RNA: Pseudomonas sRNA P26
Organism: Erwinia sp. OLSSP12
RNA sequence: ACCCUCCAGGUUGCAGCCUGACUUGUCAGGCUGAUGGCUGGUGACUUUUUGGUCACCAGCCU
Dot-bracket structure: .............(((((..........)))))..((((((((((......)))))))))).